[Rfam]
RNA sequence: GCCCAGGUGGCGGAAUUGGUAGACGCGCUGGACUCAAAAUCCAGUGUCCCUUAAAGACGUGCGGGUUCGAUUCCCGCCCUGGGUA
Numbered sequence: 001g002c003c004c005a006g007g008u009g010g011c012g013g014a015a016u017u018g019g020u021a022g023a024c025g026c027g028c029u030g031g032a033c034u035c036a037a038a039a040u041c042c043a044g045u046g047u048c049c050c051u052u053a054a055a056g057a058c059g060u061g062c063g064g065g066u067u068c069g070a071u072u073c074c075c076g077c078c079c080u081g082g083g084u085a
Stems, first nucleotide, its partner, number of pairs: 001084007010026003028044005061077005
The record is an 85-nucleotide RNA from Sanguibacteroides justesenii, which matches "tRNA" in Rfam. The base pairs follow the family's consensus structure, which is taken from published work. Rfam links the family to the GO term triplet codon-amino acid adaptor activity. The organism belongs to Sanguibacteroides, within Bacteria. It is annotated as a transfer RNA.